[Rfam]
RNA: Small nucleolar RNA SNORA8
Organism: Glaucidium brasilianum
RNA sequence: UGCACUGUAUGGUAUCUGCACCCAGCAGUGUCUUCCUGAUGGGGUGUUUAAAAAGCAGUGCUACAGUAUUUCAGCAGCUGGCAUCGUUGGUUUUCAUGCAGAUGUGCUGGUUAAACUUGGUAUUCCUGUUGAAACAAGU
Numbered sequence: 001u002g003c004a005c006u007g008u009a010u011g012g013u014a015u016c017u018g019c020a021c022c023c024a025g026c027a028g029u030g031u032c033u034u035c036c037u038g039a040u041g042g043g044g045u046g047u048u049u050a051a052a053a054a055g056c057a058g059u060g061c062u063a064c065a066g067u068a069u070u071u072c073a074g075c076a077g078c079u080g081g082c083a084u085c086g087u088u089g090g091u092u093u094u095c096a097u098g099c100a101g102a103u104g105u106g107c108u109g110g111u112u113a114a115a116c117u118u119g120g121u122a123u124u125c126c127u128g129u130u131g132a133a134a135c136a137a138g139u
Stems, first nucleotide, its partner, number of pairs: 002061006015054001017052001018047006024040001026038003064128003068124001070122001071120004080108005